The family of this 127-nucleotide RNA sequence from Prodigiosinella confusarubida is "RtT RNA".
RNA sequence: AUGUUGCACAUAUCGUGUGGGUGAGAACCUGCGUUCAGGUUCGAGCCGAGCGAAAGCGAGACAACAACGCGAUAGCGUUGACCCGGAGGGUGAGGCCAAAGGCCGAAUCAUCCCGCACGACCCACCA
Numbered sequence: 001a002u003g004u005u006g007c008a009c010a011u012a013u014c015g016u017g018u019g020g021g022u023g024a025g026a027a028c029c030u031g032c033g034u035u036c037a038g039g040u041u042c043g044a045g046c047c048g049a050g051c052g053a054a055a056g057c058g059a060g061a062c063a064a065c066a067a068c069g070c071g072a073u074a075g076c077g078u079u080g081a082c083c084c085g086g087a088g089g090g091u092g093a094g095g096c097c098a099a100a101g102g103c104c105g106a107a108u109c110a111u112c113c114c115g116c117a118c119g120a121c122c123c124a125c126c127a
Stems, first nucleotide, its partner, number of pairs: 015118007022110001032092002035090002040087004047058002065080006
It scores 107 bits against the family's covariance model.
From the family's description: This family represents a bacterial cis-regulatory element known as RtT RNA. The exact function of RtT is unknown although it is thought that it may be involved in changing the cellular response in relation to amino acid starvation.
The literature on the family includes a 1991 paper in Nucleic Acids Res by Bosl and Kersten, "A novel RNA product of the tyrT operon of Escherichia coli".
The family has 57 seed sequences and 651 matches in Rfam 15.1.
The base pairs follow the family's consensus structure, which is taken from published work.
The source organism's lineage runs through Bacteria, Pseudomonadati, Pseudomonadota, Pectobacteriaceae and Prodigiosinella.